[Rfam]
RNA sequence: GGAGUUGGCCAGGCAAUCGCCGCUUUCGUAAGAAAGGGGAGGAAAGUCCGGGCUCCAGAGGGCAGGGUGCCAGAUAACGUCUGGGCGGCGUGAGCCGACGACCAGUGCAGCAGAGAGUAAACCGCCUAAGCGCUUCGGCGCCGGUAAGGGUGAAAGGGUGCGGUAAGAGCGCACCGCGCAGCUGGUAACAGUUUGUGGCACGGUAAACUCCACCCGGAGCAAGACCAAAUAGGCCUCCUAUACGUGCGGCCCGCACGGGAGGCGGGUAGGUUGCUUGAGCCAGUGAGCGAUUGCUGGCCUAGAGGAAUGAUUGCCGCUCGCAAGAGACACAGAACCCGGCUUACCGGCCAACUCCGACU
Numbered sequence: 001g002g003a004g005u006u007g008g009c010c011a012g013g014c015a016a017u018c019g020c021c022g023c024u025u026u027c028g029u030a031a032g033a034a035a036g037g038g039g040a041g042g043a044a045a046g047u048c049c050g051g052g053c054u055c056c057a058g059a060g061g062g063c064a065g066g067g068u069g070c071c072a073g074a075u076a077a078c079g080u081c082u083g084g085g086c087g088g089c090g091u092g093a094g095c096c097g098a099c100g101a102c103c104a105g106u107g108c109a110g111c112a113g114a115g116a117g118u119a120a121a122c123c124g125c126c127u128a129a130g131c132g133c134u135u136c137g138g139c140g141c142c143g144g145u146a147a148g149g150g151u152g153a154a155a156g157g158g159u160g161c162g163g164u165a166a167g168a169g170c171g172c173a174c175c176g177c178g179c180a181g182c183u184g185g186u187a188a189c190a191g192u193u194u195g196u197g198g199c200a201c202g203g204u205a206a207a208c209u210c211c212a213c214c215c216g217g218a219g220c221a222a223g224a225c226c227a228a229a230u231a232g233g234c235c236u237c238c239u240a241u242a243c244g245u246g247c248g249g250c251c252c253g254c255a256c257g258g259g260a261g262g263c264g265g266g267u268a269g270g271u272u273g274c275u276u277g278a279g280c281c282a283g284u285g286a287g288c289g290a291u292u293g294c295u296g297g298c299c300u301a302g303a304g305g306a307a308u309g310a311u312u313g314c315c316g317c318u319c320g321c322a323a324g325a326g327a328c329a330c331a332g333a334a335c336c337c338g339g340c341u342u343a344c345c346g347g348c349c350a351a352c353u354c355c356g357a358c359u
Stems, first nucleotide, its partner, number of pairs: 001355010012315007020039002023036005044342003048339005053219004060252004065215005070084005085099001086097004100210002105208002107204002122149002124145003130141004157175006176199001177197005182191003223272004233263006243257005279298008

The record is a 359-nucleotide RNA from Marisediminitalea lipolytica, which matches "Bacterial RNase P class A" in Rfam.
Lineage of the source: Bacteria > Pseudomonadati > Alteromonadales > Alteromonadaceae > Marisediminitalea.
The match comes from Rfam's covariance-model search (334 bits).
By type it is a ribozyme.